[Rfam]
A member of the RNA family "L31-Actinobacteria ribosomal protein leader", 55 nucleotides long. Rfam's curators put it in the seed alignment.
RNA sequence: UCGGUUCCGGUUCACGUCUGAUGCUCGCAGGUCACGCGCAGGCGACCCGGCGGCC
Numbered sequence: 001u002c003g004g005u006u007c008c009g010g011u012u013c014a015c016g017u018c019u020g021a022u023g024c025u026c027g028c029a030g031g032u033c034a035c036g037c038g039c040a041g042g043c044g045a046c047c048c049g050g051c052g053g054c055c
Stems, first nucleotide, its partner, number of pairs: 003055003007050004015044006022038002